[Rfam]
RNA sequence: GGAAUAGGAACUUCUCCUAAAAGCGCACACGUCCUGUGUGCAACGGAGAACCCAGAACAUCCUGUUCA
Dot-bracket structure: ...........((((((........(((((.....)))))....))))))....((((.....)))).